[Rfam]
Background:
Shown here is a 75-nucleotide sequence from Desulfonema ishimotonii, a member of the family "c-di-GMP-I-GGC riboswitch aptamer". Taxonomically the source falls in Desulfonema (Bacteria, Pseudomonadati, Desulfobacterales, Desulfococcaceae). Gene Ontology term of the family: cyclic-di-GMP binding.
RNA sequence: CAGGAAAAAGCCAAACCCAUUGCGAGGUGGGGACGGAAAGCUACGGGUCUUAAACAGACAGCCGGGCUGCCAAAG
Number, nucleotide and partner (000 for none) at each position: 001c075002a000003g000004g071005a000006a000007a000008a000009a000010g000011c036012c035013a000014a000015a000016c031017c030018c029019a028020u027021u026022g000023c000024g000025a000026g021027g020028u019029g018030g017031g016032g000033a000034c061035g012036g011037a000038a000039a068040g067041c066042u065043a000044c064045g063046g062047g059048u058049c057050u000051u000052a000053a000054a000055c000056a000057g049058a048059c047060a000061g034062c046063c045064g044065g042066g041067c040068u039069g000070c000071c004072a000073a000074a000075g001